[Rfam]
RNA: MIR5291 microRNA precursor family
Organism: Trifolium subterraneum
RNA sequence: GAUGGAUUCAAUCCAGUCCAUUAACUAAUUUUUUUACAUUUGGAUGGAUUGGAUGAAUUCAUUA
Numbered sequence: 001g002a003u004g005g006a007u008u009c010a011a012u013c014c015a016g017u018c019c020a021u022u023a024a025c026u027a028a029u030u031u032u033u034u035u036a037c038a039u040u041u042g043g044a045u046g047g048a049u050u051g052g053a054u055g056a057a058u059u060c061a062u063u064a
Stems, first nucleotide, its partner, number of pairs: 004060005011054012025042001027040003